[Rfam]
RNA sequence: GCUUUGGGAGGGUUCCUGGCGUGCUGAUUUGUGACUUAAGAUAAAAUCACAUUGCCAGGGAUUACCACCCAGGC
Dot-bracket structure: ((..(((..((((((((((((((.((((((.............)))))))).))))))))))..))..))).))